[Rfam]
A member of the RNA family "Mammalian CPEB3 ribozyme" from Alligator mississippiensis, 80 nucleotides long. About the family: The mammalian CPEB3 ribozyme is a self cleaving RNA located in the second intron of the CPEB3 gene which belongs to a family of genes regulating messenger RNA polyadenylation.

RNA sequence: AGAGGCCACACAUCCAAGGCCAUAGCAGAAAUGCUUACGGCCCGGCCAUAUCAGAUUCCAGCAGAUCUGAGAAUUCUGCU
Dot-bracket structure: ............[....[[[[..(((((((..(.......)..]]]]]...((((((......))))))....)))))))